[Rfam]
RNA sequence: AGGUAAGAAUCAAAGGCUAAGUUCACGACAUCCUGUCGCAACGCCUUUGUGACCUGCGUCCUGCAGG
Numbered sequence: 001a002g003g004u005a006a007g008a009a010u011c012a013a014a015g016g017c018u019a020a021g022u023u024c025a026c027g028a029c030a031u032c033c034u035g036u037c038g039c040a041a042c043g044c045c046u047u048u049g050u051g052a053c054c055u056g057c058g059u060c061c062u063g064c065a066g067g
Stems, first nucleotide, its partner, number of pairs: 011049007026038004053067005
Dot-bracket structure: ..........(((((((........((((.....))))....)))))))...(((((.....)))))

A member of the RNA family "Bacillaceae-1 RNA" from Lederbergia galactosidilytica, 67 nucleotides long. It scores 75 bits against the family's covariance model.